[Rfam]
RNA: mir-194 microRNA precursor family
RNA sequence: UAGUGUGUAUCAGGUGUAACAGCAACUCCAUGUGGACUUGUCCGUAUUCCAGUGGAGAUGCUGUUACUUUUGAUGGGCAC
Numbered sequence: 001u002a003g004u005g006u007g008u009a010u011c012a013g014g015u016g017u018a019a020c021a022g023c024a025a026c027u028c029c030a031u032g033u034g035g036a037c038u039u040g041u042c043c044g045u046a047u048u049c050c051a052g053u054g055g056a057g058a059u060g061c062u063g064u065u066a067c068u069u070u071u072g073a074u075g076g077g078c079a080c
Base pairs, nucleotide, nucleotide: 010073011072012071016067017066018065019064020063021062022061023060026057027056028055029054030053031052033051034050035049